This 37-nucleotide RNA sequence from Nocardia sp. NRRL S-836 belongs to the Rfam family "CRISPR RNA direct repeat element". Lineage of the source: Bacteria > Actinomycetota > Actinomycetes > Nocardiaceae > Nocardia. Rfam links the family to the GO term defense response. The base pairs follow the family's consensus structure, which was predicted with WAR.

[Rfam]
RNA sequence: GCAGCGCUGGGCUUUCGUGCUCAGCGAGGAUCCCAAC
Numbered sequence: 001g002c003a004g005c006g007c008u009g010g011g012c013u014u015u016c017g018u019g020c021u022c023a024g025c026g027a028g029g030a031u032c033c034c035a036a037c
Stems, first nucleotide, its partner, number of pairs: 005026008